[Rfam]
RNA: Glycine riboswitch aptamer
Nucleotides: 087
Stems, first nucleotide, its partner, number of pairs: 009079005020030003032067003035063002039061003045054002
Number, partner (000 for none) and nucleotide at each position: 001000g002000g003000a004000u005000g006000a007000a008000c009079c010078c011077u012076u013075g014000g015000a016000g017000a018000g019000a020030c021029u022028c023000u024000u025000a026000a027000u028022g029021a030020g031000c032067a033066c034065c035063g036062a037000a038000g039061g040060a041059g042000c043000a044000a045054g046053c047000c048000a049000u050000a051000u052000g053046g054045c055000g056000a057000a058000a059041c060040u061039c062036u063035c064000a065034g066033g067032u068000a069000a070000a071000a072000g073000g074000a075013c076012a077011g078010g079009g080000a081000c082000a083000g084000a085000u086000a087000a